[Rfam]
The family of this 110-nucleotide RNA sequence from Terrimesophilobacter mesophilus is "Glycine riboswitch aptamer". NCBI's taxonomy places the organism under Bacteria, Actinomycetota, Micrococcales, Microbacteriaceae, Terrimesophilobacter.
RNA sequence: CAACACGAUGCGGGAGAGCCAUCCGGUCACCGGCGUGUGAUCAGCAGGAUGGCACCGAAGGAGCAAGCCUCCCCGCCAAUCUCUCAGGUCACCAGUACCGCAUCGAACUG
Number, nucleotide and partner (000 for none) at each position: 001c000002a000003a000004c000005a000006c105007g104008a103009u102010g101011c100012g099013g098014g000015a000016g000017a000018g000019c052020c051021a050022u049023c048024c047025g000026g000027u000028c000029a000030c000031c000032g000033g000034c000035g000036u000037g000038u000039g000040a000041u000042c000043a000044g000045c000046a000047g024048g023049a022050u021051g020052g019053c000054a089055c088056c087057g085058a084059a000060g000061g083062a082063g081064c000065a000066a000067g076068c075069c000070u000071c000072c000073c000074c000075g068076c067077c000078a000079a000080u000081c063082u062083c061084u058085c057086a000087g056088g055089u054090c000091a000092c000093c000094a000095g000096u000097a000098c013099c012100g011101c010102a009103u008104c007105g006106a000107a000108c000109u000110g000